[Rfam]
Shown here is a 77-nucleotide RNA sequence from Electrophorus electricus, a member of the family "mir-30 microRNA precursor family". The base pairs follow the family's consensus structure, which was predicted with PFOLD. Its family is annotated with gene silencing by miRNA and RISC complex in the Gene Ontology. From the family's description: This family consists of the mammalian microRNA (miRNA) precursor mir-30a. Animal miRNAs are transcribed as ~70nt precursors and subsequently processed by the Dicer enzyme to give a ~22nt product.

RNA sequence: CUCGUGGCUGUAAACAUCCCCGACUGGAAGCUGUUAAACGUCACCUGAGCUUUCAGUCUGAUGUUUGCUACUGUUGG
Numbered sequence: 001c002u003c004g005u006g007g008c009u010g011u012a013a014a015c016a017u018c019c020c021c022g023a024c025u026g027g028a029a030g031c032u033g034u035u036a037a038a039c040g041u042c043a044c045c046u047g048a049g050c051u052u053u054c055a056g057u058c059u060g061a062u063g064u065u066u067g068c069u070a071c072u073g074u075u076g077g
Stems, first nucleotide, its partner, number of pairs: 002076001004074003010068009023057010